Notes: A member of the RNA family "Small nucleolar RNA Z122" from Juglans regia, 90 nucleotides long. The source organism's lineage runs through Eukaryota, Viridiplantae, Embryophyta, eudicotyledons and Juglans. Rfam 15.1 lists 822 matches to the family in 247 species. The family's consensus secondary structure was predicted with PFOLD.
[Rfam]
RNA sequence: CUUGAGGAAAUGAUGAUUAGAUACAAACAGAUUGGCAAAGGUGCCAGAAAUGCCGAAAUUUAUUUAUUUGCACGUCAGUCUGAUCCCAAG
Numbered sequence: 001c002u003u004g005a006g007g008a009a010a011u012g013a014u015g016a017u018u019a020g021a022u023a024c025a026a027a028c029a030g031a032u033u034g035g036c037a038a039a040g041g042u043g044c045c046a047g048a049a050a051u052g053c054c055g056a057a058a059u060u061u062a063u064u065u066a067u068u069u070g071c072a073c074g075u076c077a078g079u080c081u082g083a084u085c086c087c088a089a090g
Stems, first nucleotide, its partner, number of pairs: 001090004006086003
Dot-bracket structure: ((((.(((...........................................................................)))))))